[Rfam]
RNA: UnaL2 LINE 3' element
RNA sequence: UUUUCACCUUGUUGUAAGUCGCUCUGGAUAAGAGCGUCUGCUAAAUGACUAAAA
Numbered sequence: 001u002u003u004u005c006a007c008c009u010u011g012u013u014g015u016a017a018g019u020c021g022c023u024c025u026g027g028a029u030a031a032g033a034g035c036g037u038c039u040g041c042u043a044a045a046u047g048a049c050u051a052a053a054a
Base pairs, nucleotide, nucleotide: 013043014041015040016039020036021035022034023033024032025031